[Rfam]
RNA sequence: UGCAACCAAGGUGAUGGGGUUCCACCUACUUAACCGCCAAAUCGGCUGAUGACUCCUACAGUUUC
Numbered sequence: 001u002g003c004a005a006c007c008a009a010g011g012u013g014a015u016g017g018g019g020u021u022c023c024a025c026c027u028a029c030u031u032a033a034c035c036g037c038c039a040a041a042u043c044g045g046c047u048g049a050u051g052a053c054u055c056c057u058a059c060a061g062u063u064u065c
Base pairs, nucleotide, nucleotide: 010026011025012024013023016056017055018054019053020052021051036046037045038044

The record is a 65-nucleotide RNA from Vibrio mediterranei, which matches "Fluoride riboswitch aptamer (crcB RNA motif)" in Rfam. Rfam 15.1 lists 2,293 matches to the family in 1,982 species. It is one of the family's seed sequences. On this family, see Baker et al., Science 2012: "Widespread genetic switches and toxicity resistance proteins for fluoride". Rfam links the family to the GO terms response to fluoride and positive regulation of gene expression.